[Rfam]
RNA sequence: ACCUUUCAGGUUGCAGCCUGGUUGUAGUCUUUACCAGGCUGAUGGCUGGUGACUUUUUGGUCACCAGCCU
Numbered sequence: 001a002c003c004u005u006u007c008a009g010g011u012u013g014c015a016g017c018c019u020g021g022u023u024g025u026a027g028u029c030u031u032u033a034c035c036a037g038g039c040u041g042a043u044g045g046c047u048g049g050u051g052a053c054u055u056u057u058u059g060g061u062c063a064c065c066a067g068c069c070u
Stems, first nucleotide, its partner, number of pairs: 014041009044069010

This 70-nucleotide RNA sequence from Erwinia tasmaniensis belongs to the Rfam family "Pseudomonas sRNA P26". On this family, see Livny et al., Nucleic Acids Res 2006: "Identification of 17 Pseudomonas aeruginosa sRNAs and prediction of sRNA-encoding genes in 10 diverse pathogens using the bioinformatic tool sRNAPredict2". About the family: This small RNA (sRNA) was computationally identified in the genome of the opportunistic pathogen Pseudomonas aeruginosa and its expression verified by northern blot analysis. P26 is conserved across many Gammaproteobacteria species and appears to be consistently located between the DNA directed RNA polymerase (beta subunit) and 50S ribosomal protein L7/L12 genes.